[Rfam]
RNA sequence: AAUUUUUGACUGGGGGCCACUUCAGAAAUUUUCAAAGUGGCCCCGGGCUGCCCCAGAAGGGGCGGGGCUUUAUGCA
Numbered sequence: 001a002a003u004u005u006u007u008g009a010c011u012g013g014g015g016g017c018c019a020c021u022u023c024a025g026a027a028a029u030u031u032u033c034a035a036a037g038u039g040g041c042c043c044c045g046g047g048c049u050g051c052c053c054c055a056g057a058a059g060g061g062g063c064g065g066g067g068c069u070u071u072a073u074g075c076a
Stems, first nucleotide, its partner, number of pairs: 013044006021076001023074002026071002028038003048065007

Rfam assigns this 76-nucleotide RNA from Pelodiscus sinensis to the family "Mammalian CPEB3 ribozyme". The source organism's lineage runs through Eukaryota, Opisthokonta, Tetrapoda, Testudines and Pelodiscus. A search with the family's covariance model found it, with a score of 39 bits.